[Rfam]
The family of this 84-nucleotide sequence from Diaphorina citri is "bantam microRNA precursor family". A search with the family's covariance model found it, with a score of 62 bits. Taxonomically the source falls in Diaphorina (Eukaryota, Metazoa, Eumetazoa, Pancrustacea). For this family Rfam cites "Computational and transcriptional evidence for microRNAs in the honey bee genome" (Weaver et al., Genome Biol, 2007). Rfam 15.1 lists 182 matches to the family in 182 species.

RNA sequence: CCGAAAUAACGAAACUGGCAUUCACAGUGAUCUGCUGACAUAUUUUACGAUUUCUGAGAUCAUUGUGAAAGCUGAUUUCGUCCC
Dot-bracket structure: ........((((((.((((.(((((..((((((.......................))))))..))))).)))).))))))...